[Rfam]
The family of this 173-nucleotide sequence from Paenibacillus rhizosphaerae is "c-di-AMP riboswitch aptamer (ydaO/yuaA leader)".
RNA sequence: UUAUCAAUAACGCUUAAUUUCGGCCGGAAACGGCCGGGAGCGGGGGAACCACAGCGGCCGCCUGGAAUGGAAGCCGCCGGGGUGAAUCUUUCCGGUACGGUAAGUACCGGAAGGUAGGGCGACUCUCACGCCCGAAUCCGACAGCUAACCUCGUCAGCGUAACGGGAGAGAGA
Numbered sequence: 001u002u003a004u005c006a007a008u009a010a011c012g013c014u015u016a017a018u019u020u021c022g023g024c025c026g027g028a029a030a031c032g033g034c035c036g037g038g039a040g041c042g043g044g045g046g047a048a049c050c051a052c053a054g055c056g057g058c059c060g061c062c063u064g065g066a067a068u069g070g071a072a073g074c075c076g077c078c079g080g081g082g083u084g085a086a087u088c089u090u091u092c093c094g095g096u097a098c099g100g101u102a103a104g105u106a107c108c109g110g111a112a113g114g115u116a117g118g119g120c121g122a123c124u125c126u127c128a129c130g131c132c133c134g135a136a137u138c139c140g141a142c143a144g145c146u147a148a149c150c151u152c153g154u155c156a157g158c159g160u161a162a163c164g165g166g167a168g169a170g171a172g173a
Base pairs, nucleotide, nucleotide: 011159012158013157014156018039019038020037021036022035023034024033025032026031040154041153042152043151044150045149050079080139081138082137088114089113090112091111092110093109094108095107096106097105098104117133118132119131120130

Annotation
About the family: This family represents a conserved RNA structure found upstream of the ydaO and yuaA genes in Bacillus subtilis and related genes in other bacteria.